A member of the RNA family "raiA-hairpin RNA" from Streptomyces scopuliridis, 48 nucleotides long. It scores 65 bits against the family's covariance model.
RNA sequence: CGCCAAGUCCGAGGCUCCGGUGAUUACCGGGGUCUGGUGCAACAGGGA
Numbered sequence: 001c002g003c004c005a006a007g008u009c010c011g012a013g014g015c016u017c018c019g020g021u022g023a024u025u026a027c028c029g030g031g032g033u034c035u036g037g038u039g040c041a042a043c044a045g046g047g048a
Stems, first nucleotide, its partner, number of pairs: 013034008
Dot-bracket structure: ............((((((((......))))))))..............